Rfam assigns this 167-nucleotide RNA sequence from Wenjunlia vitaminophila to the family "c-di-AMP riboswitch aptamer (ydaO/yuaA leader)". The organism belongs to Wenjunlia, within Bacteria.
RNA sequence: ACGGGACGUUUGCCACGACCUGACCGAAGGCGGGAGCGGGGGAACCACGUUAGGCGCCGAGCCACCACCGGCUCGGCUCGGGGUGAAGCCGCCUCAGCGACGAGCGGCCGGGCCACCUCACGGCCCGAACCCGACAGCUCACCUCGUAGGCGUCGGAGAGGGACACG
Numbered sequence: 001a002c003g004g005g006a007c008g009u010u011u012g013c014c015a016c017g018a019c020c021u022g023a024c025c026g027a028a029g030g031c032g033g034g035a036g037c038g039g040g041g042g043a044a045c046c047a048c049g050u051u052a053g054g055c056g057c058c059g060a061g062c063c064a065c066c067a068c069c070g071g072c073u074c075g076g077c078u079c080g081g082g083g084u085g086a087a088g089c090c091g092c093c094u095c096a097g098c099g100a101c102g103a104g105c106g107g108c109c110g111g112g113c114c115a116c117c118u119c120a121c122g123g124c125c126c127g128a129a130c131c132c133g134a135c136a137g138c139u140c141a142c143c144u145c146g147u148a149g150g151c152g153u154c155g156g157a158g159a160g161g162g163a164c165a166c167g
Stems, first nucleotide, its partner, number of pairs: 011152004019034004036147006046080001081132003089107004110126004